Notes
Shown here is a 79-nucleotide RNA sequence from Mesocricetus auratus, a member of the family "Small nucleolar RNA SNORD115". Rfam links the family to the GO terms nucleolus and RNA processing. By type it is a C/D-box small nucleolar RNA.

[Rfam]
RNA sequence: GGGUCUAUGAUGGCAAGCCAAUGUCAUGAAGAGAGGUGAUGACAUAAAAAUCAUGCUCAAUAGGAUUACUCUGAGGCCC
Numbered sequence: 001g002g003g004u005c006u007a008u009g010a011u012g013g014c015a016a017g018c019c020a021a022u023g024u025c026a027u028g029a030a031g032a033g034a035g036g037u038g039a040u041g042a043c044a045u046a047a048a049a050a051u052c053a054u055g056c057u058c059a060a061u062a063g064g065a066u067u068a069c070u071c072u073g074a075g076g077c078c079c
Base pairs, nucleotide, nucleotide: 001079002078003077004076005073009069
The organism belongs to Mesocricetus, within Eukaryota.